[Rfam]
RNA sequence: AAAAAAAUAGGGCUGCCCGAAUCACGGGCAGCCCUGCUUUUUUGGAUCAUGCAAGAUGAAACAAAAAAGUAAAGGGAGAGGAGAAACCGGAGGAAGAACUUAUGGGGAUGUAAGUCUUCUCCGUUU
Numbered sequence: 001a002a003a004a005a006a007a008u009a010g011g012g013c014u015g016c017c018c019g020a021a022u023c024a025c026g027g028g029c030a031g032c033c034c035u036g037c038u039u040u041u042u043u044g045g046a047u048c049a050u051g052c053a054a055g056a057u058g059a060a061a062c063a064a065a066a067a068a069g070u071a072a073a074g075g076g077a078g079a080g081g082a083g084a085a086a087c088c089g090g091a092g093g094a095a096g097a098a099c100u101u102a103u104g105g106g107g108a109u110g111u112a113a114g115u116c117u118u119c120u121c122c123g124u125u126u
Stems, first nucleotide, its partner, number of pairs: 011033009034076002037074003088123004093119004098115005

The record is a 126-nucleotide sequence from Halobacillus sp. BAB-2008, which matches "ylbH leader" in Rfam. A reference for the family is Barrick et al. (2004), "New RNA motifs suggest an expanded scope for riboswitches in bacterial genetic control", Proc Natl Acad Sci U S A. It is annotated as a cis-regulatory leader. Rfam describes the family as follows. This family is a putative regulatory RNA structure that is found upstream of the ylbH gene in B. subtilis and related low GC Gram-positive bacteria. Lineage of the source: Bacteria > Bacillota > Bacilli > Bacillaceae > Halobacillus.